[Rfam]
The record is a 94-nucleotide RNA from Pelotomaculum isophthalicicum, which matches "c-di-GMP-I riboswitch aptamer" in Rfam.
Gene Ontology term of the family: cyclic-di-GMP binding.
Taxonomically the source falls in Pelotomaculum isophthalicicum (Bacteria, Bacillati, Clostridia, Pelotomaculum).
RNA sequence: AUAACAACAAAGCAAUCUAUGCCGAAAGGCAUAGGGCGCAAAGCUACGGACCUAAAGGGUUAUUGAUUUGCCUUACGGUAGCCGGGCUGCCUUA
Number, nucleotide and partner (000 for none) at each position: 001a000002u000003a000004a000005c000006a000007a000008c000009a000010a000011a000012g039013c038014a000015a000016u000017c034018u033019a032020u031021g000022c000023c029024g000025a000026a000027a000028g000029g023030c000031a020032u019033a018034g017035g000036g000037c000038g013039c012040a000041a000042a088043g087044c086045u085046a000047c084048g083049g082050a079051c078052c077053u000054a000055a000056a000057g073058g072059g071060u070061u000062a000063u000064u000065g000066a000067u000068u000069u000070g060071c059072c058073u057074u000075a000076c000077g052078g051079u050080a000081g000082c049083c048084g047085g045086g044087c043088u042089g000090c000091c000092u000093u000094a000